[Rfam]
RNA sequence: UGUCUAAAAGAUUAAGCCAUGCACGUGUAAGUACAGACUAAUUAUAAAUAGAGAAACCGCGAACGGCUCAUUAAAUCAGUCGAAGUUCACUGGACGUUGGCCUCAGGUACUUGGAUAACUGUGGUAAUUCUAGAGCUAAUACAUGCAAUCAAGCUGCUCUCCUCACGCGGGCUGGUCCCAUUUUGUGAGGGGUGGAGCGCACUUAUUAGAUCAAAACCAAUUUCGCCUGUACAGCUGAGCUGUCUGGCAAUGUUUUUGAUGACUCUGGAUAAAUAGCUGAUCGUAUGGCCAUACGAGAGCCGAUGAUACGUCCAUCAAGCGUCUGACCUAUCAAAUGUCGAUGGUAAGCGCUUUGCAUACCAUGUUCACAACGGGUGACGGGGAAUCAGGGUUUGAUUCCGGAGAGGGAGCAUGAGAAACGGCUGCCACAUCCAAGGAAGGCAGCAGGCGCGUAACUUACCCACUCCUAGAUCGGGGAGGUAGUGACAAGAAAUAACAAUACGUGAAUGCUGAAGCUAUUCGGCCUCGUAAUUGGAAUGAUUAGACACAUUGAAUGUAAAAACUAUAAUUAGAAUCUA
Numbered sequence: 001u002g003u004c005u006a007a008a009a010g011a012u013u014a015a016g017c018c019a020u021g022c023a024c025g026u027g028u029a030a031g032u033a034c035a036g037a038c039u040a041a042u043u044a045u046a047a048a049u050a051g052a053g054a055a056a057c058c059g060c061g062a063a064c065g066g067c068u069c070a071u072u073a074a075a076u077c078a079g080u081c082g083a084a085g086u087u088c089a090c091u092g093g094a095c096g097u098u099g100g101c102c103u104c105a106g107g108u109a110c111u112u113g114g115a116u117a118a119c120u121g122u123g124g125u126a127a128u129u130c131u132a133g134a135g136c137u138a139a140u141a142c143a144u145g146c147a148a149u150c151a152a153g154c155u156g157c158u159c160u161c162c163u164c165a166c167g168c169g170g171g172c173u174g175g176u177c178c179c180a181u182u183u184u185g186u187g188a189g190g191g192g193u194g195g196a197g198c199g200c201a202c203u204u205a206u207u208a209g210a211u212c213a214a215a216a217c218c219a220a221u222u223u224c225g226c227c228u229g230u231a232c233a234g235c236u237g238a239g240c241u242g243u244c245u246g247g248c249a250a251u252g253u254u255u256u257u258g259a260u261g262a263c264u265c266u267g268g269a270u271a272a273a274u275a276g277c278u279g280a281u282c283g284u285a286u287g288g289c290c291a292u293a294c295g296a297g298a299g300c301c302g303a304u305g306a307u308a309c310g311u312c313c314a315u316c317a318a319g320c321g322u323c324u325g326a327c328c329u330a331u332c333a334a335a336u337g338u339c340g341a342u343g344g345u346a347a348g349c350g351c352u353u354u355g356c357a358u359a360c361c362a363u364g365u366u367c368a369c370a371a372c373g374g375g376u377g378a379c380g381g382g383g384a385a386u387c388a389g390g391g392u393u394u395g396a397u398u399c400c401g402g403a404g405a406g407g408g409a410g411c412a413u414g415a416g417a418a419a420c421g422g423c424u425g426c427c428a429c430a431u432c433c434a435a436g437g438a439a440g441g442c443a444g445c446a447g448g449c450g451c452g453u454a455a456c457u458u459a460c461c462c463a464c465u466c467c468u469a470g471a472u473c474g475g476g477g478a479g480g481u482a483g484u485g486a487c488a489a490g491a492a493a494u495a496a497c498a499a500u501a502c503g504u505g506a507a508u509g510c511u512g513a514a515g516c517u518a519u520u521c522g523g524c525c526u527c528g529u530a531a532u533u534g535g536a537a538u539g540a541u542u543a544g545a546c547a548c549a550u551u552g553a554a555u556g557u558a559a560a561a562a563c564u565a566u567a568a569u570u571a572g573a574a575u576c577u578a
Base pairs, nucleotide, nucleotide: 003491004490005489009484010451016449017448018447020446021445022444025060026059031057032056038051067404068403069402076326077325078324079323082320086318087317092313093312094311095310110145112143113142119135120134122132123131124130153198154197155196157194160191161190162189163188164187165186166185167184203272204271205270206269207268216260218258219257239248240247241246281306282305283304284303286302287301288300289299327375328374329373334366335365336364341363342362343361344360345359346358348356379401380400381399382398383394384393385392386391406427407426409424410423411422429440431438432437457482459481460480461479465477466476467475468474497534498533499532500530501529502528503527505525508522509521542568543566554564
RNA: Eukaryotic small subunit ribosomal RNA, nucleotides 33 to 610